[Rfam]
RNA sequence: UCGAAGGGAUAGCCACCCUUCCUCUUUCAGGCUCUAGUUUAUUAAAUAAACUAGAGCCUGAAAGAAGAAGGGUGGCUAUCCCUUCGA
Numbered sequence: 001u002c003g004a005a006g007g008g009a010u011a012g013c014c015a016c017c018c019u020u021c022c023u024c025u026u027u028c029a030g031g032c033u034c035u036a037g038u039u040u041a042u043u044a045a046a047u048a049a050a051c052u053a054g055a056g057c058c059u060g061a062a063a064g065a066a067g068a069a070g071g072g073u074g075g076c077u078a079u080c081c082c083u084u085c086g087a
Base pairs, nucleotide, nucleotide: 002086003085006082007081009079010078011077012076013075014074015073016072017071018070019069020068021067023065024064025063026062027061028060029059030058031057032056034054035053037051038050039049040048

Source information
Rfam assigns this 87-nucleotide RNA from Armadillidium nasatum to the family "mir-1684 microRNA precursor family". NCBI's taxonomy places the organism under Eukaryota, Opisthokonta, Eumetazoa, Panarthropoda, Armadillidium. It scores 61 bits against the family's covariance model.